[Rfam]
RNA sequence: ACAAAAGAAUACAAGAUACCUCAUAUAACCACAAGAAUAUGGCUUGUAAGUCUCUACCAAGACACCGUAAAUGUCUUGACUAUGAUCGGUAUAUGUUUGCAC
Numbered sequence: 001a002c003a004a005a006a007g008a009a010u011a012c013a014a015g016a017u018a019c020c021u022c023a024u025a026u027a028a029c030c031a032c033a034a035g036a037a038u039a040u041g042g043c044u045u046g047u048a049a050g051u052c053u054c055u056a057c058c059a060a061g062a063c064a065c066c067g068u069a070a071a072u073g074u075c076u077u078g079a080c081u082a083u084g085a086u087c088g089g090u091a092u093a094u095g096u097u098u099g100c101a102c
Stems, first nucleotide, its partner, number of pairs: 021085005031047005058078007

Rfam assigns this 102-nucleotide RNA from Geomicrobium sp. JCM 19039 to the family "Purine riboswitch aptamer". The family's consensus secondary structure is taken from published work. The organism belongs to Geomicrobium, within Bacteria. Rfam's curators write: Riboswitches are metabolite binding domains within certain messenger RNAs that serve as precision sensors for their corresponding targets. Allosteric rearrangement of mRNA structure is mediated by ligand binding, and this results in modulation of gene expression. A class of riboswitches that selectively recognises guanine and becomes saturated at concentrations as low as 5 nM. In Bacillus subtilis, this mRNA motif is located on at least five separate transcriptional units that together encode 17 genes that are mostly involved in purine transport and purine nucleotide biosynthesis. It has also been shown that some members of this family are specific for adenine instead. Hence this family are termed purine riboswitches.